[Rfam]
RNA: tRNA
Organism: Bacillus subtilis
RNA sequence: GCGGAUGUGGCGGAAUUGGCAGACGCGCUAGAAUCAGGCUCUAGUGUCUUUACAGACGUGGGGGUUCAAGUCCCUUCAUCCGCA
Numbered sequence: 001g002c003g004g005a006u007g008u009g010g011c012g013g014a015a016u017u018g019g020c021a022g023a024c025g026c027g028c029u030a031g032a033a034u035c036a037g038g039c040u041c042u043a044g045u046g047u048c049u050u051u052a053c054a055g056a057c058g059u060g061g062g063g064g065u066u067c068a069a070g071u072c073c074c075u076u077c078a079u080c081c082g083c084a
Base pairs, nucleotide, nucleotide: 001083002082003081004080005079006078007077010026011025012024028044029043030042031041032040060076061075062074063073064072